[Rfam]
RNA sequence: AGAAGGUUGUGUGACUGGCGGAAAUGGAGUCUACCAUAGGAAACACAAUCUAUAUUUAAUCGACCGCCUGGGUGAAUUGU
Numbered sequence: 001a002g003a004a005g006g007u008u009g010u011g012u013g014a015c016u017g018g019c020g021g022a023a024a025u026g027g028a029g030u031c032u033a034c035c036a037u038a039g040g041a042a043a044c045a046c047a048a049u050c051u052a053u054a055u056u057u058a059a060u061c062g063a064c065c066g067c068c069u070g071g072g073u074g075a076a077u078u079g080u
Base pairs, nucleotide, nucleotide: 004051005050006049007048008047009046010045011044012043015040016039017068018067019066020065021064024037025036026035027034057075059073060072061071
The record is an 80-nucleotide RNA sequence from Clostridium sp. CT7, which matches "ZMP/ZTP riboswitch aptamer (pfl RNA motif)" in Rfam. The organism belongs to Clostridium, within Bacteria.